[Rfam]
RNA: epsC RNA
Organism: Alteribacter keqinensis
RNA sequence: AGGUAAUGCCUCCUCACCUUUAUCAACGGGGGUACUCGGCCACGCUGUGGGUCGUUCACCAAAGUGAACAACCUUAGACGCUCGUUGUCACCGGUGGGGUGUGAGGUUAGGUUUAAUGCCUA
Numbered sequence: 001a002g003g004u005a006a007u008g009c010c011u012c013c014u015c016a017c018c019u020u021u022a023u024c025a026a027c028g029g030g031g032g033u034a035c036u037c038g039g040c041c042a043c044g045c046u047g048u049g050g051g052u053c054g055u056u057c058a059c060c061a062a063a064g065u066g067a068a069c070a071a072c073c074u075u076a077g078a079c080g081c082u083c084g085u086u087g088u089c090a091c092c093g094g095u096g097g098g099g100u101g102u103g104a105g106g107u108u109a110g111g112u113u114u115a116a117u118g119c120c121u122a
Stems, first nucleotide, its partner, number of pairs: 001019004007034007035105004039100003043096004049074004054069006077089004108122005